[Rfam]
RNA sequence: GGCCUUUUGGUGCUUACCACAGGCUGCACUUUUUCACUGACUGAAUAGAGAGAGGAGGCAGAGUAAACCUAUCCUACAUACGCCUCAGUCCAAGCCUGGUCUGUAGUAUGAAUGGAGCAACAUGG
Numbered sequence: 001g002g003c004c005u006u007u008u009g010g011u012g013c014u015u016a017c018c019a020c021a022g023g024c025u026g027c028a029c030u031u032u033u034u035c036a037c038u039g040a041c042u043g044a045a046u047a048g049a050g051a052g053a054g055g056a057g058g059c060a061g062a063g064u065a066a067a068c069c070u071a072u073c074c075u076a077c078a079u080a081c082g083c084c085u086c087a088g089u090c091c092a093a094g095c096c097u098g099g100u101c102u103g104u105a106g107u108a109u110g111a112a113u114g115g116a117g118c119a120a121c122a123u124g125g
Base pairs, nucleotide, nucleotide: 002059003058004057005056006055007054008053020043021042022041026037072117074115075114076113086103087102088101090099091098092097
This 125-nucleotide RNA from Saimiri boliviensis belongs to the Rfam family "Small nucleolar RNA SNORA51". It is annotated as an H/ACA-box small nucleolar RNA. Rfam 15.1 lists 2,121 matches to the family in 210 species. Its family is annotated with RNA processing and nucleolus in the Gene Ontology. A search with the family's covariance model found it, with a score of 90 bits.